[Rfam]
RNA sequence: GAAAAUUUGCUCUUUUAGUAUUUGUCUAGGAGGGUCCUAUAAUAUUAAGGACCCCAU
Numbered sequence: 001g002a003a004a005a006u007u008u009g010c011u012c013u014u015u016u017a018g019u020a021u022u023u024g025u026c027u028a029g030g031a032g033g034g035u036c037c038u039a040u041a042a043u044a045u046u047a048a049g050g051a052c053c054c055c056a057u
Stems, first nucleotide, its partner, number of pairs: 032054007041046001
Dot-bracket structure: ...............................(((((((..(....).)))))))...
RNA: U7 small nuclear RNA